[Rfam]
RNA sequence: UUUCUCAUUUGACUACCACAUUUUCUCCUAGUCAUAGAUUUCAGUGGCUAUACUUUUGGGAUAGAUUAAAAUUGCCAUGAAACGAAGAGGGAGGGUUUUUUGGUAUCCUCCUUCUAUAUGAGAUGGCUAAACAGGAAAAA
Number, nucleotide and partner (000 for none) at each position: 001u000002u000003u000004c060005u059006c058007a057008u000009u000010u000011g000012a000013c000014u000015a000016c047017c046018a045019c044020a000021u000022u000023u000024u000025c000026u000027c000028c000029u000030a000031g000032u000033c000034a000035u000036a000037g000038a000039u000040u000041u000042c000043a000044g019045u018046g017047g016048c000049u000050a000051u000052a000053c000054u000055u000056u000057u007058g006059g005060g004061a000062u000063a000064g000065a000066u000067u000068a000069a000070a000071a000072u000073u000074g127075c126076c125077a124078u000079g000080a000081a000082a000083c000084g000085a000086a000087g000088a000089g000090g000091g000092a115093g114094g113095g112096u000097u000098u000099u000100u000101u000102g000103g000104u000105a000106u000107c000108c000109u000110c000111c000112u095113u094114c093115u092116a000117u000118a000119u000120g000121a000122g000123a000124u077125g076126g075127c074128u000129a000130a000131a000132c000133a000134g000135g000136a000137a000138a000139a000140a000

Rfam assigns this 140-nucleotide RNA sequence from Carlito syrichta to the family "Small nucleolar RNA SNORA29". Gene Ontology terms of the family: RNA processing and nucleolus. Rfam's curators write: ACA29 is a member of the H/ACA class of snoRNA that guide the sites of modification of uridines to pseudouridines. A reference for the family is Huttenhofer et al. (2001), "RNomics: an experimental approach that identifies 201 candidates for novel, small, non-messenger RNAs in mouse", EMBO J. A search with the family's covariance model found it, with a score of 142 bits.